[Rfam]
RNA sequence: AGACGGGCCGUGUCAACCGGACAUGACGGAGAUGGAGAACGCAGGGAUUUUUCCGGUUUCUCCCUGCGGCCAACGAAACGGCAGGCGAGCUCCCCACCCGCCCGGCCC
Numbered sequence: 001a002g003a004c005g006g007g008c009c010g011u012g013u014c015a016a017c018c019g020g021a022c023a024u025g026a027c028g029g030a031g032a033u034g035g036a037g038a039a040c041g042c043a044g045g046g047a048u049u050u051u052u053c054c055g056g057u058u059u060c061u062c063c064c065u066g067c068g069g070c071c072a073a074c075g076a077a078a079c080g081g082c083a084g085g086c087g088a089g090c091u092c093c094c095c096a097c098c099c100g101c102c103c104g105g106c107c108c
Stems, first nucleotide, its partner, number of pairs: 006107004011023004025102001027100003034093004040068007069082003
Rhizobiales sRNA Atu_At1: a 108-nucleotide RNA from Shinella sp. WSJ-2.
The family has 33 seed sequences and 200 matches in Rfam 15.1.
Pairs were carried over by alignment from the consensus structure, which was predicted with CMfinder.
NCBI's taxonomy places the organism under Bacteria, Pseudomonadota, Alphaproteobacteria, Hyphomicrobiales, Shinella.